Small nucleolar RNA SNORD16: a 100-nucleotide RNA sequence from Takifugu flavidus.
RNA sequence: UGCCAUGAUGGUGUAAUUUGCGUCUGAUCCUGUGAACAGUGACAGUUGCCUGCUGUCUAUAUGCUGUCAUGGGUACUUGAUGUAUAUUAAAGUCUGAGCA
Numbered sequence: 001u002g003c004c005a006u007g008a009u010g011g012u013g014u015a016a017u018u019u020g021c022g023u024c025u026g027a028u029c030c031u032g033u034g035a036a037c038a039g040u041g042a043c044a045g046u047u048g049c050c051u052g053c054u055g056u057c058u059a060u061a062u063g064c065u066g067u068c069a070u071g072g073g074u075a076c077u078u079g080a081u082g083u084a085u086a087u088u089a090a091a092g093u094c095u096g097a098g099c100a
Stems, first nucleotide, its partner, number of pairs: 001100003021082004030072005039064002041057005
A reference for the family is Fragapane et al. (1993), "A novel small nucleolar RNA (U16) is encoded inside a ribosomal protein intron and originates by processing of the pre-mRNA", EMBO J. Pairs were carried over by alignment from the consensus structure, which was predicted with PFOLD. Rfam classes the family as a C/D-box small nucleolar RNA.